Rfam assigns this 362-nucleotide part of an RNA to the family "Bacterial large subunit ribosomal RNA". It scores 2278 bits against the family's covariance model. Gene Ontology terms of the family: ribosome and structural constituent of ribosome.
RNA sequence: AGAGCAUUGAGAGGACCUUUCCCUAGUACGAGAGGACCGGGAAGGACACACCUCUGGUGUACCAGUUAUCGUGCCUACGGUAAACGCUGGGUAGCCAAGUGCGGAGAGGAUAACUGCUGAAAGCAUAUAAGUAGUAAGCCCACCCCAAGAUGAGUGCUCUCUCCUCCGACUUCCCUAGAGCCUCCGAUAGCACAGCCGAGACAGCGACGGGUUCUCCACCCAUACGGGGAUGGAGCGACAGAAGCAUGAAAAUAGGAUAAGGUAGCGGCGAGACUAGCCGUUUAAAUAGGUGUCAAGUGGAAGUUACCUGCAUCGAUUCUUGCUGUUGUAAAACUGAAUUGUAAUUCACUCUCUUUGAAUAU
Numbered sequence: 001a002g003a004g005c006a007u008u009g010a011g012a013g014g015a016c017c018u019u020u021c022c023c024u025a026g027u028a029c030g031a032g033a034g035g036a037c038c039g040g041g042a043a044g045g046a047c048a049c050a051c052c053u054c055u056g057g058u059g060u061a062c063c064a065g066u067u068a069u070c071g072u073g074c075c076u077a078c079g080g081u082a083a084a085c086g087c088u089g090g091g092u093a094g095c096c097a098a099g100u101g102c103g104g105a106g107a108g109g110a111u112a113a114c115u116g117c118u119g120a121a122a123g124c125a126u127a128u129a130a131g132u133a134g135u136a137a138g139c140c141c142a143c144c145c146c147a148a149g150a151u152g153a154g155u156g157c158u159c160u161c162u163c164c165u166c167c168g169a170c171u172u173c174c175c176u177a178g179a180g181c182c183u184c185c186g187a188u189a190g191c192a193c194a195g196c197c198g199a200g201a202c203a204g205c206g207a208c209g210g211g212u213u214c215u216c217c218a219c220c221c222a223u224a225c226g227g228g229g230a231u232g233g234a235g236c237g238a239c240a241g242a243a244g245c246a247u248g249a250a251a252a253u254a255g256g257a258u259a260a261g262g263u264a265g266c267g268g269c270g271a272g273a274c275u276a277g278c279c280g281u282u283u284a285a286a287u288a289g290g291u292g293u294c295a296a297g298u299g300g301a302a303g304u305u306a307c308c309u310g311c312a313u314c315g316a317u318u319c320u321u322g323c324u325g326u327u328g329u330a331a332a333a334c335u336g337a338a339u340u341g342u343a344a345u346u347c348a349c350u351c352u353c354u355u356u357g358a359a360u361a362u
Stems, first nucleotide, its partner, number of pairs: 001160008011146001013144002017045007047103001049101003055097003062090005067082006108140002114134005163256003265281005304361001